[Rfam]
This 149-nucleotide RNA from Gulosibacter chungangensis belongs to the Rfam family "FMN riboswitch aptamer (RFN element)". Taxonomically the source falls in Gulosibacter (Bacteria, Bacillati, Micrococcales, Microbacteriaceae).

RNA sequence: AACAUGCUCCGGGGUCGGUGAAAGUCCGAACCGGCGGUGAUAGCCCGCGACCGCUUCGCGAGAUUGAUACCCAAGUAUCGAACGAGUGCAGCGUUGAUCUGGUGGAAUUCCAGAGCCGACAGUCAAAGUCUGGAUGGGAGGCGCAUGCG
Numbered sequence: 001a002a003c004a005u006g007c008u009c010c011g012g013g014g015u016c017g018g019u020g021a022a023a024g025u026c027c028g029a030a031c032c033g034g035c036g037g038u039g040a041u042a043g044c045c046c047g048c049g050a051c052c053g054c055u056u057c058g059c060g061a062g063a064u065u066g067a068u069a070c071c072c073a074a075g076u077a078u079c080g081a082a083c084g085a086g087u088g089c090a091g092c093g094u095u096g097a098u099c100u101g102g103u104g105g106a107a108u109u110c111c112a113g114a115g116c117c118g119a120c121a122g123u124c125a126a127a128g129u130c131u132g133g134a135u136g137g138g139a140g141g142c143g144c145a146u147g148c149g
Stems, first nucleotide, its partner, number of pairs: 003147005009141002016028003030129002032118002034048004043116002052093004098114005120132003